[Rfam]
Nucleotides: 142
Base pairs, nucleotide, nucleotide: 003037004036005035006034007033008032013030014029015028016027017026018025065096067094068093069092070091072089073088074087075086076085077084078083106137107136108135109134110133111132112131113130114129115128116127117126118125119124
Number, partner (000 for none) and nucleotide at each position: 001000g002000u003037u004036a005035c006034c007033u008032u009000u010000a011000a012000u013030u014029c015028a016027g017026u018025c019000c020000a021000g022000a023000g024000a025018g026017g027016c028015u029014g030013g031000c032008a033007a034006g035005g036004u037003g038000u039000u040000g041000c042000a043000g044000a045000a046000g047000a048000g049000g050000a051000u052000u053000u054000c055000u056000g057000c058000g059000u060000a061000g062000u063000g064000u065096u066000g067094u068093g069092u070091g071000c072089u073088u074087a075086g076085g077084g078083a079000u080000g081000c082000g083078u084077c085076c086075c087074u088073a089072a090000c091070c092069a093068u094067a095000g096065a097000a098000u099000a100000c101000g102000g103000a104000a105000a106137a107136a108135g109134c110133a111132u112131c113130u114129u115128g116127c117126c118125a119124u120000a121000c122000a123000u124119g125118u126117g127116g128115c129114g130113a131112g132111a133110u134109g135108c136107u137106u138000u139000u140000u141000u142000u
Source information
PyrR binding site: a 142-nucleotide RNA sequence from Litchfieldia stipae. The organism belongs to Litchfieldia, within Bacteria. The base pairs follow the family's consensus structure, which is taken from published work.